[Rfam]
Overview
The record is a 98-nucleotide RNA sequence from Dioscorea zingiberensis, which matches "MIR397 microRNA precursor family" in Rfam. Pairs were carried over by alignment from the consensus structure, which was predicted with WAR. The family has 7 seed sequences and 496 matches in Rfam 15.1. Its family is annotated with RISC complex and miRNA-mediated post-transcriptional gene silencing in the Gene Ontology.

RNA sequence: AUCAAAAGCAUCAUUGAGUGCAGCGUUGAUGAAUAAUUCCAUUUCCAAGUCCCAAUGGAAAAUUAAUUUCACCAGCGCUGCAUUCAAUUAUGUAUUUG
Numbered sequence: 001a002u003c004a005a006a007a008g009c010a011u012c013a014u015u016g017a018g019u020g021c022a023g024c025g026u027u028g029a030u031g032a033a034u035a036a037u038u039c040c041a042u043u044u045c046c047a048a049g050u051c052c053c054a055a056u057g058g059a060a061a062a063u064u065a066a067u068u069u070c071a072c073c074a075g076c077g078c079u080g081c082a083u084u085c086a087a088u089u090a091u092g093u094a095u096u097u098g
Stems, first nucleotide, its partner, number of pairs: 006095001008093004013088016030071003